[Rfam]
RNA: Bacteroidales-1 6S-Bacteroidales RNA suggested
Organism: Bacteroides sp. CAG:462
RNA sequence: AGCCGCAUUGGUAGAACUGGGAAACUCAUCAAUUACACUGAAAUACCGAGAUACGCUUCAAUCUCCAAUGGCGGGCCACGCCUUCGGGUAGCUUUAAGCCGGUGGAUUACAAAGGGGAUGAGCUCUCAAAUCUUAUUACUCGGAGUUUCAUCGCAUCACCAGUGCGGCUUUUUCA
Numbered sequence: 001a002g003c004c005g006c007a008u009u010g011g012u013a014g015a016a017c018u019g020g021g022a023a024a025c026u027c028a029u030c031a032a033u034u035a036c037a038c039u040g041a042a043a044u045a046c047c048g049a050g051a052u053a054c055g056c057u058u059c060a061a062u063c064u065c066c067a068a069u070g071g072c073g074g075g076c077c078a079c080g081c082c083u084u085c086g087g088g089u090a091g092c093u094u095u096a097a098g099c100c101g102g103u104g105g106a107u108u109a110c111a112a113a114g115g116g117g118a119u120g121a122g123c124u125c126u127c128a129a130a131u132c133u134u135a136u137u138a139c140u141c142g143g144a145g146u147u148u149c150a151u152c153g154c155a156u157c158a159c160c161a162g163u164g165c166g167g168c169u170u171u172u173u174c175a
Stems, first nucleotide, its partner, number of pairs: 055123003059120001061119006069111002076105004080089003091099003